The record is an 87-nucleotide sequence, which matches "PhotoRC-II RNA" in Rfam. The family's RNA type in Rfam is cis-regulatory element. The base pairs follow the family's consensus structure, which is taken from published work. It is one of the family's seed sequences.

RNA sequence: UUUCUCUACUACUUGCCGUUACCGAGACUAGGCAGGACAAUCCGUCUCUAAUAUCCUGAUUAGGGCUUCAGGAAAUAACUUAAUACA
Numbered sequence: 001u002u003u004c005u006c007u008a009c010u011a012c013u014u015g016c017c018g019u020u021a022c023c024g025a026g027a028c029u030a031g032g033c034a035g036g037a038c039a040a041u042c043c044g045u046c047u048c049u050a051a052u053a054u055c056c057u058g059a060u061u062a063g064g065g066c067u068u069c070a071g072g073a074a075a076u077a078a079c080u081u082a083a084u085a086c087a
Base pairs, nucleotide, nucleotide: 013035014034015033016032017031020030021029024048025047026046027045028044054073055072056071057070058069059068